[Rfam]
RNA sequence: GGGACGGCUUUUUUACUGCUUUCUAAAACGGAGUUUUAGUACAAAAUUUUUUAUUUUUGUACUAAAACUCCGUUUUAGAAAGCAGUAAAAAAGCCGUCCC
Numbered sequence: 001g002g003g004a005c006g007g008c009u010u011u012u013u014u015a016c017u018g019c020u021u022u023c024u025a026a027a028a029c030g031g032a033g034u035u036u037u038a039g040u041a042c043a044a045a046a047u048u049u050u051u052u053a054u055u056u057u058u059g060u061a062c063u064a065a066a067a068c069u070c071c072g073u074u075u076u077a078g079a080a081a082g083c084a085g086u087a088a089a090a091a092a093g094c095c096g097u098c099c100c
Stems, first nucleotide, its partner, number of pairs: 001100009011091002013088024039062007
RNA: MIR1888 microRNA precursor family
Organism: Dendrobium nobile